Rfam assigns this 97-nucleotide RNA from Canis lupus to the family "mir-8813 microRNA precursor family".
A search with the family's covariance model found it, with a score of 79 bits.
Pairs were carried over by alignment from the consensus structure, which was predicted with RNAalifold.
RNA sequence: UGGUGACCUGAGGCUCCCCGGCUGUCCCUCUGUCCCAGCCCCUCCUGGCCUGCGGGGCUCAGGCUGAGUCCCAGUAAGGUCUGUGGGGUCCUGACCC
Numbered sequence: 001u002g003g004u005g006a007c008c009u010g011a012g013g014c015u016c017c018c019c020g021g022c023u024g025u026c027c028c029u030c031u032g033u034c035c036c037a038g039c040c041c042c043u044c045c046u047g048g049c050c051u052g053c054g055g056g057g058c059u060c061a062g063g064c065u066g067a068g069u070c071c072c073a074g075u076a077a078g079g080u081c082u083g084u085g086g087g088g089u090c091c092u093g094a095c096c097c
Stems, first nucleotide, its partner, number of pairs: 002096003005090005011082005021075004028068003032064003038058005
Dot-bracket structure: .((((((((.(((((.....((((...(((.(((...(((((...........)))))...))).)))...))))..)))))...)))))...))).